[Rfam]
RNA sequence: UCUGUGGAUUAGGUAGUUUCAUGUUGUUGGGCUGGGCGUUGCAAUCACAAGAACAUCGAACUGCCUGAUUUACUGC
Numbered sequence: 001u002c003u004g005u006g007g008a009u010u011a012g013g014u015a016g017u018u019u020c021a022u023g024u025u026g027u028u029g030g031g032c033u034g035g036g037c038g039u040u041g042c043a044a045u046c047a048c049a050a051g052a053a054c055a056u057c058g059a060a061c062u063g064c065c066u067g068a069u070u071u072a073c074u075g076c
Stems, first nucleotide, its partner, number of pairs: 004073016022055004027050003031046001
Record summary
The record is a 76-nucleotide RNA sequence from Horornis vulcanius, which matches "mir-196 microRNA precursor family" in Rfam. The family has 84 seed sequences and 1,813 matches in Rfam 15.1.